[Rfam]
RNA sequence: GGGUCGGGUAGGGUGGGGAGGCUCGCCACCUCCUGUACCCGCGUGGCGUAAGGCGGGCACCAGUAACCUCUUCCCCACGGCAAGGAAUAGCCUAGGUCCAGACCGUACGAUGAGGAUCGCCCAGUAGGGUUAACGGCUAUGGGCUUUCCCUUCGGAGGAAGGGAAAGUACCAUACUUACCGGGUGAAUCGGCCAGGCCCGGAAGGGAGCAACCGUAGCCGGACGUUAGCGCUUACUGGUCACCGGUUCGAGGAAGGUCUGGGUUAAGCCUGGGUUAUUCACUACCGCGGGGGAGGGGGGCCGACCC
Dot-bracket structure: (((((((.(..((((((((((.......))))))...(((((..........))))))))).....((((((((((.((.....((((((((((((((((((((.(.(.....(.((((.(((((((((((.((((.((((((((((((((((....))))))))))).))))).)..(((.((....(((.....(((....))).....)))..))))).))).))).))))))))....)))).)..).).)))))))).....)))))))))))).....)).))))))))))).)))))))
Overview:
This 306-nucleotide sequence from Candidatus Aramenus sulfurataquae belongs to the Rfam family "Archaeal signal recognition particle RNA". Gene Ontology terms of the family: SRP-dependent cotranslational protein targeting to membrane, signal sequence recognition and signal recognition particle, plasma membrane targeting. The match comes from Rfam's covariance-model search (185 bits). Pairs were carried over by alignment from the consensus structure, which is taken from published work. A reference for the family is Wild et al. (2002), "Towards the structure of the mammalian signal recognition particle", Curr Opin Struct Biol. Its Rfam clan is "SRP clan".